[Rfam]
RNA sequence: UCCUCGCUCGAAGAAUCGCAUUCAAAGCUUACACACAGAGACGCGUCUCCGGACGCGCUUCUCAUCUCGCACAUUGCUUUGGGAGAAAGUCCCCGGACACCCUGCCUCGCAGGCACCCGUGCCAACACGCCGCCACAGAAGCACCGCGGCCUCGCCCACCAACCCCACCGGACAUCGCCCUCAGCAUCGUCUGCACUCCCGCUGCCACCGACUCUGCUCCGCCCGCAAAGGUUCUGGCACCACGGACGAAGAUACGAGUCCGCCAGUCCCAGAGCAGGCGUGUCGCAGUGCUGUGUGUUUGCCGUGUUGGAGGAGAAGCUUUGGGCCGAAGCCAGUGGCGGGCGAGGGUUUUUUCGUCAAGAUGGAUAGUUAUGCGAUUGCUUUUCCUCACACUGCGUUCUGCGGGGUGUGAAGGGAGGUAACUCGAUGGGGCUUAUUCUCGAUGCGAGG
Dot-bracket structure: .((((((((((..((((((..(((((((.........((((.((((........)))).))))............)))))).)...[[[.[[[[..........((.....))...........................................................................................................................................................................(.(...((.(((...((((....(((.......(((...))).....)))..)))).))).)).).)......................)))))).((((((...........................)))))).........]]]]]]]....)))).))))))

Rfam assigns this 450-nucleotide RNA from Lophium mytilinum to the family "RNase MRP". RNase MRP is an enzymatically active ribonucleoprotein with two distinct roles in eukaryotes. Gene Ontology terms of the family: ribonuclease MRP activity, ribonuclease MRP complex and rRNA processing.